[Rfam]
Rfam assigns this 90-nucleotide RNA from Pigmentiphaga litoralis to the family "Glycine riboswitch aptamer". On this family, see Mandal et al., Science 2004: "A glycine-dependent riboswitch that uses cooperative binding to control gene expression". A search with the family's covariance model found it, with a score of 63 bits. The organism belongs to Pigmentiphaga, within Bacteria. This family represents the bacterial glycine riboswitch.
RNA sequence: AACGACCGCGUAGAAGAGUCCGGCCACGUGCCGGCGCCGAAGGAGCAACCACCCCGGAAUCUCUCAGGCAACCAGGACUGCGCGGGACAG
Numbered sequence: 001a002a003c004g005a006c007c008g009c010g011u012a013g014a015a016g017a018g019u020c021c022g023g024c025c026a027c028g029u030g031c032c033g034g035c036g037c038c039g040a041a042g043g044a045g046c047a048a049c050c051a052c053c054c055c056g057g058a059a060u061c062u063c064u065c066a067g068g069c070a071a072c073c074a075g076g077a078c079u080g081c082g083c084g085g086g087a088c089a090g
Stems, first nucleotide, its partner, number of pairs: 006085008020034004036069003039065002043063003049057002